[Rfam]
RNA sequence: AUGCAUUCUCAAACCCUCCUGGUACUGUUGUGAUUAUAACUUCCAGGAUAAGGAUGAAUGCAAAAGAAAAAAAUGUAGAAUUAUCCAAAAUGCAAGACAUUCUUUCCUUGUCCUGCAUUAUUUCACCUCUUCAACAACA
Numbered sequence: 001a002u003g004c005a006u007u008c009u010c011a012a013a014c015c016c017u018c019c020u021g022g023u024a025c026u027g028u029u030g031u032g033a034u035u036a037u038a039a040c041u042u043c044c045a046g047g048a049u050a051a052g053g054a055u056g057a058a059u060g061c062a063a064a065a066g067a068a069a070a071a072a073a074u075g076u077a078g079a080a081u082u083a084u085c086c087a088a089a090a091u092g093c094a095a096g097a098c099a100u101u102c103u104u105u106c107c108u109u110g111u112c113c114u115g116c117a118u119u120a121u122u123u124c125a126c127c128u129c130u131u132c133a134a135c136a137a138c139a
Base pairs, nucleotide, nucleotide: 003061004060005059006058009053010052017048018047019046020045021044022043024041026039066138074133075132077130078129079128089119090118091117092116093115094114097111098110
Dot-bracket structure: ..((((..((......((((((.(.(............).).))))))...))....))))....(.......((.(((.........((((((..((...........))..))))))........))).))....).